[Rfam]
A member of the RNA family "Mammalian CPEB3 ribozyme" from Alligator mississippiensis, 76 nucleotides long.
Rfam links the family to the GO term RNA nuclease activity.

RNA sequence: AUUGCAAGUUACAGCCCGUAGCAGAAGUGAUCAUGGUGUGGCCCUGUCAGAUUCUAAUGAACCUGCAAAUUCUGCU
Numbered sequence: 001a002u003u004g005c006a007a008g009u010u011a012c013a014g015c016c017c018g019u020a021g022c023a024g025a026a027g028u029g030a031u032c033a034u035g036g037u038g039u040g041g042c043c044c045u046g047u048c049a050g051a052u053u054c055u056a057a058u059g060a061a062c063c064u065g066c067a068a069a070u071u072c073u074g075c076u
Base pairs, nucleotide, nucleotide: 014043016041017040020076021075022074023073024072025071026070027039028038029037048065049064050063052061053060054059
Taxonomically the source falls in Alligator (Eukaryota, Craniata, Vertebrata, Sauropsida). The family's consensus secondary structure is taken from published work.